[Rfam]
RNA sequence: UGGAAUUAGUGAAUACACUAAAUAUUGAUAUUUGUUUUUUUUCACAAUCAUUUUGGAGUGUUAUGAUGUCUCUAAGUGUUUCAGAGAAGAUGAAAAUUAUUUCCGAUUUCAGAUAUAAUGAU
Number, nucleotide and partner (000 for none) at each position: 001u000002g000003g000004a000005a000006u000007u030008a029009g000010u027011g026012a025013a000014u000015a000016c000017a000018c000019u000020a000021a000022a000023u000024a000025u012026u011027g010028a000029u008030a007031u000032u000033u000034g000035u000036u000037u000038u000039u000040u000041u000042u000043c000044a000045c000046a000047a000048u000049c000050a000051u000052u076053u075054u074055g073056g072057a071058g070059u000060g000061u000062u000063a000064u000065g000066a000067u000068g000069u000070c058071u057072c056073u055074a054075a053076g052077u000078g000079u000080u000081u000082c000083a000084g000085a000086g000087a000088a000089g000090a000091u000092g000093a000094a000095a000096a000097u000098u000099a000100u000101u000102u000103c000104c000105g000106a000107u000108u000109u000110c000111a000112g000113a000114u000115a000116u000117a000118a000119u000120g000121a000122u000
This 122-nucleotide RNA from Candidatus Gullanella endobia belongs to the Rfam family "Ribosomal S15 leader". Lineage of the source: Bacteria > Pseudomonadati > Pseudomonadota > Gammaproteobacteria > Candidatus Gullanella. On this family, see Benard et al., Biochimie 1996: "Pseudoknot and translational control in the expression of the S15 ribosomal protein". About the family: The E. coli Ribosomal S15 gene 5' UTR can form two alternative structures. A search with the family's covariance model found it, with a score of 40 bits.